The family of this 59-nucleotide RNA sequence from Afipia carboxidovorans is "Selenocysteine insertion sequence 3". Taxonomically the source falls in Afipia carboxidovorans (Bacteria, Pseudomonadota, Nitrobacteraceae, Afipia).
RNA sequence: GUUUGACACGGACCGACGGUGGCCAGUUUGGGCUCCACAUACGGUCGCGGUGCAAUGAC
Numbered sequence: 001g002u003u004u005g006a007c008a009c010g011g012a013c014c015g016a017c018g019g020u021g022g023c024c025a026g027u028u029u030g031g032g033c034u035c036c037a038c039a040u041a042c043g044g045u046c047g048c049g050g051u052g053c054a055a056u057g058a059c
Stems, first nucleotide, its partner, number of pairs: 007049001009047003013043001015042001018035002021033001023031003